[Rfam]
Nucleotides: 114
Stems, first nucleotide, its partner, number of pairs: 029042003044087010061077005088113009
Number, partner (000 for none) and nucleotide at each position: 001000c002000c003000u004000g005000c006000c007000u008000g009000c010000g011000u012000c013000u014000u015000a016000g017000g018000g019000g020000a021000g022000u023000a024000g025000c026000c027000c028000g029042c030041u031040c032000g033000u034000u035000c036000a037000u038000u039000c040031g041030a042029g043000u044087g045086a046085g047084a048083c049082u050081g051080u052079c053078a054000a055000c056000a057000u058000a059000c060000u061077u062076g063075a064074g065073c066000c067000c068000u069000c070000a071000u072000g073065g074064c075063u076062u077061a078053u079052g080051g081050c082049a083048g084047u085046u086045u087044c088113g089112u090111a091110u092109c093108a094107a095106c096105a097000u098000u099000c100000a101000c102000u103000c104000u105096u106095g107094u108093u109092g110091a111090u112089a113088u114000c
Shown here is a 114-nucleotide RNA sequence from Paraglaciecola mesophila, a member of the family "Manganese Mn2+ riboswitch aptamer (yybP-ykoY)". For this family Rfam cites "Novel small RNA-encoding genes in the intergenic regions of Escherichia coli" (Argaman et al., Curr Biol, 2001). This RNA was originally discovered in E. coli during a large scale screen and was named SraF. The family was later found to exist upstream of related families of protein genes in many bacteria, including the the yybP and ykoK genes in B. subtilis. The specific functions of these proteins are unknown, but this structured RNA element may be involved in their genetic regulation as a riboswitch. Rfam links the family to the GO term manganese ion binding.